[Rfam]
RNA sequence: CAAAUGAAUAGAGGUUGCAACAGACAUGAGUACGCAAGGGAGUUCCUGUAUGAACGAAGAACUUGUUUAAAGGGGAUGUUGCCGAAGCGCUAGGUUGUACAGAACUUAGUGUGCUGGGACUUAUCAAUAAUAUGAUAUGGACUGUCGUAGCAAAAAUGUCGGCUACGGUGCGCUUACGACAA
Number, nucleotide and partner (000 for none) at each position: 001c000002a000003a000004a000005u000006g177007a000008a175009u000010a174011g173012a000013g000014g000015u000016u000017g082018c081019a080020a079021c078022a077023g000024a000025c074026a000027u000028g000029a000030g000031u000032a000033c000034g066035c065036a064037a000038g062039g000040g000041a000042g000043u000044u000045c000046c000047u000048g000049u000050a000051u000052g000053a000054a000055c000056g000057a000058a000059g000060a000061a000062c038063u000064u036065g035066u034067u000068u000069a000070a000071a000072g000073g000074g025075g000076a000077u022078g021079u020080u019081g018082c017083c000084g000085a000086a115087g114088c113089g112090c109091u108092a107093g106094g105095u104096u103097g000098u000099a000100c000101a000102g000103a096104a095105c094106u093107u092108a091109g090110u000111g000112u089113g088114c087115u086116g143117g142118g000119a000120c139121u000122u137123a136124u135125c134126a133127a000128u000129a000130a000131u000132a000133u126134g125135a124136u123137a122138u000139g120140g000141a000142c117143u116144g000145u168146c167147g166148u165149a164150g163151c162152a000153a000154a000155a000156a000157u000158g000159u000160c000161g000162g151163c150164u149165a148166c147167g146168g145169u000170g000171c000172g000173c011174u010175u008176a000177c006178g000179a000180c000181a000182a000
Annotation:
A member of the RNA family "Lysine riboswitch aptamer" from Companilactobacillus versmoldensis, 182 nucleotides long. The source organism's lineage runs through Bacteria, Bacillati, Bacillota, Companilactobacillus and Companilactobacillus versmoldensis. Riboswitches are metabolite binding domains within certain messenger RNAs that serve as precision sensors for their corresponding targets. The match comes from Rfam's covariance-model search (79 bits).